[Rfam]
RNA sequence: UGUGGGAAAGGGCAAAUUUUACGAAAGUAAAAGACGCAAAGCCACGGGCCUAAAACAAGACAUUGUCAUGGCAGCCGGGUUGCAGGU
Numbered sequence: 001u002g003u004g005g006g007a008a009a010g011g012g013c014a015a016a017u018u019u020u021a022c023g024a025a026a027g028u029a030a031a032a033g034a035c036g037c038a039a040a041g042c043c044a045c046g047g048g049c050c051u052a053a054a055a056c057a058a059g060a061c062a063u064u065g066u067c068a069u070g071g072c073a074g075c076c077g078g079g080u081u082g083c084a085g086g087u
Stems, first nucleotide, its partner, number of pairs: 012037002017032006040081004045077003048072003055066004
Dot-bracket structure: ...........((...((((((....))))))...))..((((.((((((....((((....))))...)))..)))))))......
c-di-GMP-I riboswitch aptamer: an 87-nucleotide RNA from Bacillus sp. FJAT-18017. It scores 86 bits against the family's covariance model.